Rfam assigns this 72-nucleotide sequence from Saccharomyces cerevisiae to the family "tRNA". NCBI's taxonomy places the organism under Eukaryota, Dikarya, Saccharomycetes, Saccharomycetaceae, Saccharomyces.
[Rfam]
RNA sequence: GCUCGCGUGGCGUAAUGGCAACGCGUCUGACUUCUAAUCAGAAGAUUAUGGGUUCGACCCCCAUCGUGAGUG
Dot-bracket structure: (((((((..((((.......)))).(((((.......))))).....(((((.......)))))))))))).
It is one of the family's seed sequences. Rfam describes the family as follows. Transfer RNA (tRNA) molecules are approximately 80 nucleotides in length. The family is grouped with related families in Rfam's "tRNA clan".